Nucleotides: 369
Stems, first nucleotide, its partner, number of pairs: 001365007019338007032326001034324004043313005048068005054083006121142009148184006155175003159171003163197006203231009215245005248286005262279003266305004274299001276297001342358005
Number, partner (000 for none) and nucleotide at each position: 001365g002364g003363g004362g005361a006360u007359g008000a009000u010000c011000g012000g013000u014000u015000u016000c017000g018000a019338c020337g021336a022335u023334g024333u025332u026000a027000g028000u029000c030000g031000c032326g033000a034324c035323a036322g037321g038000u039000g040000a041000a042000g043313c044312g045311g046310g047309c048068c049067g050066a051065g052064g053000a054083u055082g056081c057080a058079g059078a060000a061000u062000u063000a064052u065051c066050u067049c068048g069000u070000a071000a072000a073000c074000g075000c076000u077000g078059u079058c080057u081056g082055c083054a084000a085000a086000c087000c088000a089000a090000u091000a092000a093000g094000u095000g096000c097000c098000a099000a100000u101000u102000c103000u104000a105000a106000g107000c108000g109000c110000a111000c112000u113000g114000a115000c116000u117000u118000c119000g120000c121142u122141c123140u124139u125138g126137c127136u128135g129134c130000c131000u132000a133000a134129g135128c136127a137126g138125u139124a140123a141122g142121a143000c144000a145000g146000u147000c148184c149183g150182u151181c152180a153179g154000c155175c156174c157173g158000a159171g160170g161169u162000u163197g164196c165195u166194a167193u168192u169161g170160c171159c172000c173157c174156g175155g176000a177000u178000c179153c180152u181151g182150g183149c184148g185000u186000c187000a188000u189000u190000u191000a192168g193167a194166u195165a196164g197163c198000c199000a200000c201000u202000g203231c204230u205229g206228u207227u208226u209225g210224c211223c212000c213000c214000c215245g216244u217243c218242a219241u220000c221000g222000g223211g224210g225209c226208a227207g228206a229205c230204g231203g232000g233000a234000c235000u236000c237000u238000u239000a240000g241219a242218u243217g244216a245215c246000u247000g248286g249285g250284c251283c252282c253000g254000g255000a256000u257000c258000a259000g260000c261000c262279g263278c264277c265000u266305g267304u268303u269302u270000g271000c272000a273000g274299g275000a276297c277264g278263g279262c280000u281000g282252g283251g284250g285249c286248c287000g288000a289000g290000a291000a292000a293000a294000u295000c296000c297276g298000a299274c300000g301000c302269g303268a304267a305266c306000u307000g308000c309047g310046c311045c312044c313043g314000g315000a316000g317000a318000a319000g320000c321037c322036c323035u324034g325000a326032c327000a328000a329000c330000a331000c332025g333024a334023c335022a336021u337020c338019g339000g340000a341000c342358g343357g344356g345355g346354g347000u348000u349000c350000a351000a352000u353000u354346c355345c356344c357343c358342c359007c360006a361005u362004c363003u364002c365001c366000a367000c368000a369000u
Annotation:
A member of the RNA family "transfer-messenger RNA" from Arthrobacter sp. KBS0703, 369 nucleotides long. A search with the family's covariance model found it, with a score of 163 bits. It is annotated as a non-coding RNA gene. Taxonomically the source falls in Arthrobacter (Bacteria, Bacillati, Actinomycetota, Actinomycetes). Pairs were carried over by alignment from the consensus structure, which is taken from published work.